[Rfam]
Lysine riboswitch aptamer: a 172-nucleotide sequence from Shewanella oneidensis.
For this family Rfam cites "Riboswitches Control Fundamental Biochemical Pathways in Bacillus subtilis and Other Bacteria" (Mandal et al., Cell, 2003).
Taxonomically the source falls in Shewanella oneidensis (Bacteria, Gammaproteobacteria, Alteromonadales, Shewanellaceae).
RNA sequence: CCUUUAAGUAGAGGCGCGCUGCCUAUGACUACUUGUGCGGAGGGUGAUGCCGCAGAUGUACAAGGAAAGGAGUCAGCGCCGAAGUAGCCAGGUCAUCAAACCGAGCUGCUGGUUUUGCAUCAAAUAGGUGCAAGACUGCCAUAGUCAUCCACUAUGGAGCGCUACCUGAAGG
Numbered sequence: 001c002c003u004u005u006a007a008g009u010a011g012a013g014g015c016g017c018g019c020u021g022c023c024u025a026u027g028a029c030u031a032c033u034u035g036u037g038c039g040g041a042g043g044g045u046g047a048u049g050c051c052g053c054a055g056a057u058g059u060a061c062a063a064g065g066a067a068a069g070g071a072g073u074c075a076g077c078g079c080c081g082a083a084g085u086a087g088c089c090a091g092g093u094c095a096u097c098a099a100a101c102c103g104a105g106c107u108g109c110u111g112g113u114u115u116u117g118c119a120u121c122a123a124a125u126a127g128g129u130g131c132a133a134g135a136c137u138g139c140c141a142u143a144g145u146c147a148u149c150c151a152c153u154a155u156g157g158a159g160c161g162c163u164a165c166c167u168g169a170a171g172g
Stems, first nucleotide, its partner, number of pairs: 006167001008165004016079006023072002032064008083110006091102003111137011139157007
From the family's description: Riboswitches are metabolite binding domains within certain messenger RNAs that serve as precision sensors for their corresponding targets. Allosteric rearrangement of mRNA structure is mediated by ligand binding, and this results in modulation of gene expression.